[Rfam]
RNA sequence: GGGAGCCUAACAGGGGGUUACGGGAAUAUCCUGAGGAAACUCCAGCCUCCAAGCCUCAUGGGAGCAGUUAGAUCUGCAGGGUUAGUGCUCUGGCUACUGCACAGAAACGUAACCGGUAUAAUAGGAUAUGAAAAUGAGUUUAUAUGUAGUCUAGGUAACUAGGCUACAUAAAUGAGACCUAUUAUACCGGCUGAAACGGCAGUCCUCCCAGGAGCAAGUAAGGAGGGGAUGAGUUGAGGUUCAACCCUCCUAAGGACGCUUAGUAGAAUCCCCCUAAAUACAAAAGCUGGGUUAUUGUUAGGCUCCC
Numbered sequence: 001g002g003g004a005g006c007c008u009a010a011c012a013g014g015g016g017g018u019u020a021c022g023g024g025a026a027u028a029u030c031c032u033g034a035g036g037a038a039a040c041u042c043c044a045g046c047c048u049c050c051a052a053g054c055c056u057c058a059u060g061g062g063a064g065c066a067g068u069u070a071g072a073u074c075u076g077c078a079g080g081g082u083u084a085g086u087g088c089u090c091u092g093g094c095u096a097c098u099g100c101a102c103a104g105a106a107a108c109g110u111a112a113c114c115g116g117u118a119u120a121a122u123a124g125g126a127u128a129u130g131a132a133a134a135u136g137a138g139u140u141u142a143u144a145u146g147u148a149g150u151c152u153a154g155g156u157a158a159c160u161a162g163g164c165u166a167c168a169u170a171a172a173u174g175a176g177a178c179c180u181a182u183u184a185u186a187c188c189g190g191c192u193g194a195a196a197c198g199g200c201a202g203u204c205c206u207c208c209c210a211g212g213a214g215c216a217a218g219u220a221a222g223g224a225g226g227g228g229a230u231g232a233g234u235u236g237a238g239g240u241u242c243a244a245c246c247c248u249c250c251u252a253a254g255g256a257c258g259c260u261u262a263g264u265a266g267a268a269u270c271c272c273c274c275u276a277a278a279u280a281c282a283a284a285a286g287c288u289g290g291g292u293u294a295u296u297g298u299u300a301g302g303c304u305c306c307c
Stems, first nucleotide, its partner, number of pairs: 001307003005303007012275006021033005038293003042290005047214004052241006059210005064077004078091005092205002097202004113190011139172005218257002223249005

Rfam assigns this 307-nucleotide RNA sequence from Sulfolobus acidocaldarius to the family "Archaeal RNase P". Its Rfam clan is "RNaseP clan". Ribonuclease P (RNase P) is a ubiquitous endoribonuclease, found in archaea, bacteria and eukarya as well as chloroplasts and mitochondria. Its best characterised activity is the generation of mature 5'-ends of tRNAs by cleaving the 5'-leader elements of precursor-tRNAs. Cellular RNase Ps are ribonucleoproteins. RNA from bacterial RNase Ps retains its catalytic activity in the absence of the protein subunit, i.e. it is a ribozyme. For this family Rfam cites "The Ribonuclease P Database" (Brown, Nucleic Acids Res, 1999).